[Rfam]
RNA sequence: UUGGUAAGAUGCUUGCUAUAGGAUAUACAAAAAGUGUGAUGAUCACUUAAUUAUUCUUGGGAAGGUCUGAGUGAAAAGCCGCUAUUAAAGACUCUAGAAGGGUCCUGCUUAAACGUUCUGGCGUUGCACAGAAACGUCCUUUGUUGGAUUACUUGAUACGUAUUCUCGAUAAGAGGCACAAGAUUUUGUAUUUUCAUACAAAUGAUGCUAUUCGAAUGCGUAUCUUAGUUGAGAAAGUGGCGUGGCUGGCUGCUGCAGUGCGAUUAGCAAGACGAUAUGUAGUAAUACUUAUCGCAACUCAAUUCAGACUACACUCUUACCGA
Numbered sequence: 001u002u003g004g005u006a007a008g009a010u011g012c013u014u015g016c017u018a019u020a021g022g023a024u025a026u027a028c029a030a031a032a033a034g035u036g037u038g039a040u041g042a043u044c045a046c047u048u049a050a051u052u053a054u055u056c057u058u059g060g061g062a063a064g065g066u067c068u069g070a071g072u073g074a075a076a077a078g079c080c081g082c083u084a085u086u087a088a089a090g091a092c093u094c095u096a097g098a099a100g101g102g103u104c105c106u107g108c109u110u111a112a113a114c115g116u117u118c119u120g121g122c123g124u125u126g127c128a129c130a131g132a133a134a135c136g137u138c139c140u141u142u143g144u145u146g147g148a149u150u151a152c153u154u155g156a157u158a159c160g161u162a163u164u165c166u167c168g169a170u171a172a173g174a175g176g177c178a179c180a181a182g183a184u185u186u187u188g189u190a191u192u193u194u195c196a197u198a199c200a201a202a203u204g205a206u207g208c209u210a211u212u213c214g215a216a217u218g219c220g221u222a223u224c225u226u227a228g229u230u231g232a233g234a235a236a237g238u239g240g241c242g243u244g245g246c247u248g249g250c251u252g253c254u255g256c257a258g259u260g261c262g263a264u265u266a267g268c269a270a271g272a273c274g275a276u277a278u279g280u281a282g283u284a285a286u287a288c289u290u291a292u293c294g295c296a297a298c299u300c301a302a303u304u305c306a307g308a309c310u311a312c313a314c315u316c317u318u319a320c321c322g323a
Stems, first nucleotide, its partner, number of pairs: 001323004007317003012271007020058004032048005067307005077247004090104005105120001107118001110115001121243007139228002273294005